[Rfam]
RNA sequence: CGGGGCUGUUUCCACUCGGAUCGUCCGGCACGUUCCUGCCGGUGGAAAGGAAGUCG
Numbered sequence: 001c002g003g004g005g006c007u008g009u010u011u012c013c014a015c016u017c018g019g020a021u022c023g024u025c026c027g028g029c030a031c032g033u034u035c036c037u038g039c040c041g042g043u044g045g046a047a048a049g050g051a052a053g054u055c056g
Base pairs, nucleotide, nucleotide: 009048010047011046012045013044014043025042026041027040028039029038030037
msiK RNA: a 56-nucleotide RNA sequence from Paractinoplanes atraurantiacus. Taxonomically the source falls in Paractinoplanes (Bacteria, Actinomycetota, Micromonosporales, Micromonosporaceae). The family's consensus secondary structure is taken from published work.